The record is a 91-nucleotide RNA from Listeria kieliensis, which matches "Glycine riboswitch aptamer" in Rfam.
RNA sequence: UUGAAUGUAAACGGAGAGACUGUUUCGACAGCGCCGACGGGGAAAGCAUAAACUAUGUGAAACUCUCAGGCAAAAGGAUGUUUACAGGACG
Numbered sequence: 001u002u003g004a005a006u007g008u009a010a011a012c013g014g015a016g017a018g019a020c021u022g023u024u025u026c027g028a029c030a031g032c033g034c035c036g037a038c039g040g041g042g043a044a045a046g047c048a049u050a051a052a053c054u055a056u057g058u059g060a061a062a063c064u065c066u067c068a069g070g071c072a073a074a075a076g077g078a079u080g081u082u083u084a085c086a087g088g089a090c091g
Stems, first nucleotide, its partner, number of pairs: 006086008020031004033071003036067002040065003046058002
Dot-bracket structure: .....((((((((......((((....)))).(((((..(((...((.........))....))))).))).......)))))))).....